The family of this 82-nucleotide RNA from Pluralibacter gergoviae is "ArsR-gov region gene B".
RNA sequence: UCAGAUAGAAGGUCUCUCGCAGCGGCCUGAGUUACUGACUCAGCCCGCUAAAAAAACCGACCUCACCAGUCGGUUUUUUUUA
Numbered sequence: 001u002c003a004g005a006u007a008g009a010a011g012g013u014c015u016c017u018c019g020c021a022g023c024g025g026c027c028u029g030a031g032u033u034a035c036u037g038a039c040u041c042a043g044c045c046c047g048c049u050a051a052a053a054a055a056a057c058c059g060a061c062c063u064c065a066c067c068a069g070u071c072g073g074u075u076u077u078u079u080u081u082a
Stems, first nucleotide, its partner, number of pairs: 021049005027043001029041003051079011
Record summary: The match comes from Rfam's covariance-model search (49 bits). arsR-gov region gene B is transcribed opposite of dinQ (translates into a toxic single transmembrane peptide) with 30 complimentary nucleotides. AgrB appears to repress accumulation of dinQ by RNA interference and counteracts its toxicity. Rfam classes the family as an antisense RNA. Its family is annotated with antisense RNA metabolic process and gene silencing by RNA in the Gene Ontology.